Rfam assigns this 66-nucleotide RNA from Takifugu flavidus to the family "Small nucleolar RNA SNORD75". Its family is annotated with RNA processing and nucleolus in the Gene Ontology. Rfam classes the family as a C/D-box small nucleolar RNA.
RNA sequence: AGUCUGUGAUGAUAGAGAUAAGAGUAGUGGACAGAAGAGAUUUCUGAACAAAAGUAUGCUGAGACU
Numbered sequence: 001a002g003u004c005u006g007u008g009a010u011g012a013u014a015g016a017g018a019u020a021a022g023a024g025u026a027g028u029g030g031a032c033a034g035a036a037g038a039g040a041u042u043u044c045u046g047a048a049c050a051a052a053a054g055u056a057u058g059c060u061g062a063g064a065c066u
Stems, first nucleotide, its partner, number of pairs: 001066004

About this RNA: The literature on the family includes a 2002 paper in Mol Cell Biol by Galardi et al., "Purified box C/D snoRNPs are able to reproduce site-specific 2'-O-methylation of target RNA in vitro".